[Rfam]
Rfam assigns this 167-nucleotide sequence from Actinomadura rubteroloni to the family "c-di-AMP riboswitch aptamer (ydaO/yuaA leader)". Its family is annotated with regulation of gene expression and cyclic-di-AMP binding in the Gene Ontology. The pairing is the family consensus, mapped onto this sequence. It scores 70 bits against the family's covariance model.
RNA sequence: GAAGCGGCAGCGCCGAAUCCGCGAUGGCGGAACCGGGGACCCAUCCGCCGCGCACGAUCCCGCACCGGGACGCGCGGCACGGGGUGAAUCGGCCCUCUCGGGGGCCGUAGGGCAGCUUCCACGCCCGAACCCGACAGCUAACCCGGCAGGCGUCUGGAAGAAGGAGC
Numbered sequence: 001g002a003a004g005c006g007g008c009a010g011c012g013c014c015g016a017a018u019c020c021g022c023g024a025u026g027g028c029g030g031a032a033c034c035g036g037g038g039a040c041c042c043a044u045c046c047g048c049c050g051c052g053c054a055c056g057a058u059c060c061c062g063c064a065c066c067g068g069g070a071c072g073c074g075c076g077g078c079a080c081g082g083g084g085u086g087a088a089u090c091g092g093c094c095c096u097c098u099c100g101g102g103g104g105c106c107g108u109a110g111g112g113c114a115g116c117u118u119c120c121a122c123g124c125c126c127g128a129a130c131c132c133g134a135c136a137g138c139u140a141a142c143c144c145g146g147c148a149g150g151c152g153u154c155u156g157g158a159a160g161a162a163g164g165a166g167c
Stems, first nucleotide, its partner, number of pairs: 011152004018031003033146005042081001082132003090107004110126004